[Rfam]
RNA sequence: GAUUUGUUGAUUCGUCCGAAUCUUAAAAAGCUAUACGGACAUAAAAAAACAUACUUGGAUAUCAAAAAUCCAAGUGGCGAAGC
Numbered sequence: 001g002a003u004u005u006g007u008u009g010a011u012u013c014g015u016c017c018g019a020a021u022c023u024u025a026a027a028a029a030g031c032u033a034u035a036c037g038g039a040c041a042u043a044a045a046a047a048a049a050c051a052u053a054c055u056u057g058g059a060u061a062u063c064a065a066a067a068a069u070c071c072a073a074g075u076g077g078c079g080a081a082g083c
Base pairs, nucleotide, nucleotide: 001022002021003020004019005018006017055073056072057071058070059069060068
Rfam assigns this 83-nucleotide RNA sequence to the family "RAGATH-28 RNA".